[Rfam]
Shown here is a 105-nucleotide RNA from Psychromonas sp. Urea-02u-13, a member of the family "Alpha operon ribosome binding site".
The family's RNA type in Rfam is cis-regulatory element.
Its family is annotated with ribosome binding in the Gene Ontology.
The base pairs follow the family's consensus structure, which is taken from published work.
The source organism's lineage runs through Bacteria, Pseudomonadota, Gammaproteobacteria, Psychromonadaceae and Psychromonas.
Rfam's curators write: The bacterial alpha operon ribosome binding site is surrounded by this complex pseudoknotted structure.

RNA sequence: UCUAAUCAUCAUUUGUAGAGCAUCCUUUCGGGCUUUUCACAGAUGAAUUUUACUUAAUUUAAGGAGUGCAUAGUGGCCCGUAUCGCUGGCAUUAACGUUCCUGAU
Numbered sequence: 001u002c003u004a005a006u007c008a009u010c011a012u013u014u015g016u017a018g019a020g021c022a023u024c025c026u027u028u029c030g031g032g033c034u035u036u037u038c039a040c041a042g043a044u045g046a047a048u049u050u051u052a053c054u055u056a057a058u059u060u061a062a063g064g065a066g067u068g069c070a071u072a073g074u075g076g077c078c079c080g081u082a083u084c085g086c087u088g089g090c091a092u093u094a095a096c097g098u099u100c101c102u103g104a105u
Stems, first nucleotide, its partner, number of pairs: 004048001006046005013039001024089002029080004037104002